[Rfam]
Background: The family of this 595-nucleotide part of an RNA from Plasmodium vivax is "Eukaryotic small subunit ribosomal RNA". The base pairs follow the family's consensus structure, which is taken from published work. A search with the family's covariance model found it, with a score of 1543 bits. A reference for the family is Cannone et al. (2002), "The comparative RNA web (CRW) site: an online database of comparative sequence and structure information for ribosomal, intron, and other RNAs", BMC Bioinformatics. Its family is annotated with structural constituent of ribosome and ribosome in the Gene Ontology.

RNA sequence: AGUCAUAUGCUUGUCUCAAAGAUUAAGCCAUGCAAGUGAAAGUAUAUGCAUAUUUUAUAUGUAGAAACUGCGAACGGCUCAUUAAAACAGUUAUAAUCUACUUGACAUUUUUUCUAUAAGGAUAACUACGGAAAAGCUGUAGCUAAUACUUGCUUUAGCACUCUUGAUUCAUUUCUUGAGUGUGUACUUGUUAAGCCUUUUAAGAAAAAAGUUAUUAACUUAAGGAAUUAUAACAAAGAAGUGACACGUAAUGGAUCCGUCCAUUUUUAGUGUGUAUCAAUCGAGUUUCUGACCUAUCAGCUUUUGAUGUUAGGGUAUUGGCCUAACAUGGCUAUGACGGGUAACGGGGAAUUAGAGUUCGAUUCCGGAGAGGGAGCCUGAGAAAUAGCUACCACAUCUAAGGAAGGCAGCAGGCGCGUAAAUUACCCAAUUCUAAAGAAGAGAGGUAGUGACAAGAAAUAACAAUACAAGGCCAAUCUGGCUUUGUAAUUGGAAUGAUGGGAAUUUAAAACCUUCCCAAAACUCAAUUGGAGGGCAAGUCUGGUGCCAGCAGCCGCGGUAAUUCCAGCUCCAAUAGCGUAUAUUAAAAUUGUUG
Numbered sequence: 001a002g003u004c005a006u007a008u009g010c011u012u013g014u015c016u017c018a019a020a021g022a023u024u025a026a027g028c029c030a031u032g033c034a035a036g037u038g039a040a041a042g043u044a045u046a047u048g049c050a051u052a053u054u055u056u057a058u059a060u061g062u063a064g065a066a067a068c069u070g071c072g073a074a075c076g077g078c079u080c081a082u083u084a085a086a087a088c089a090g091u092u093a094u095a096a097u098c099u100a101c102u103u104g105a106c107a108u109u110u111u112u113u114c115u116a117u118a119a120g121g122a123u124a125a126c127u128a129c130g131g132a133a134a135a136g137c138u139g140u141a142g143c144u145a146a147u148a149c150u151u152g153c154u155u156u157a158g159c160a161c162u163c164u165u166g167a168u169u170c171a172u173u174u175c176u177u178g179a180g181u182g183u184g185u186a187c188u189u190g191u192u193a194a195g196c197c198u199u200u201u202a203a204g205a206a207a208a209a210a211g212u213u214a215u216u217a218a219c220u221u222a223a224g225g226a227a228u229u230a231u232a233a234c235a236a237a238g239a240a241g242u243g244a245c246a247c248g249u250a251a252u253g254g255a256u257c258c259g260u261c262c263a264u265u266u267u268u269a270g271u272g273u274g275u276a277u278c279a280a281u282c283g284a285g286u287u288u289c290u291g292a293c294c295u296a297u298c299a300g301c302u303u304u305u306g307a308u309g310u311u312a313g314g315g316u317a318u319u320g321g322c323c324u325a326a327c328a329u330g331g332c333u334a335u336g337a338c339g340g341g342u343a344a345c346g347g348g349g350a351a352u353u354a355g356a357g358u359u360c361g362a363u364u365c366c367g368g369a370g371a372g373g374g375a376g377c378c379u380g381a382g383a384a385a386u387a388g389c390u391a392c393c394a395c396a397u398c399u400a401a402g403g404a405a406g407g408c409a410g411c412a413g414g415c416g417c418g419u420a421a422a423u424u425a426c427c428c429a430a431u432u433c434u435a436a437a438g439a440a441g442a443g444a445g446g447u448a449g450u451g452a453c454a455a456g457a458a459a460u461a462a463c464a465a466u467a468c469a470a471g472g473c474c475a476a477u478c479u480g481g482c483u484u485u486g487u488a489a490u491u492g493g494a495a496u497g498a499u500g501g502g503a504a505u506u507u508a509a510a511a512c513c514u515u516c517c518c519a520a521a522a523c524u525c526a527a528u529u530g531g532a533g534g535g536c537a538a539g540u541c542u543g544g545u546g547c548c549a550g551c552a553g554c555c556g557c558g559g560u561a562a563u564u565c566c567a568g569c570u571c572c573a574a575u576a577g578c579g580u581a582u583a584u585u586a587a588a589a590u591u592g593u594u595g
Base pairs, nucleotide, nucleotide: 001585002584003583005582006581007580008579009578010577011576014457015456016455020450021417027415028414029413031412032411033410036071037070041069042068043067078370079369080368088291089290090289093286094285097284098283103279104278105277117152118151119150120149126142127141128140129139130138131137162180166176188236189235190234191233192232193231199224200223201222202221206215208213245272246271247270293341294340295339300332301331302330307329308328309327310326311325312324313323314322345367346366347365348364349360350359351358352357372393373392375390376389377388395406397404398403423448425447426446427445431443432442433441434440463492464491465490466488467487468486469485470484471483472482473481474480475479499519500518501516503515504514528574529573530572531571532570533569541568542567543566544565550557551556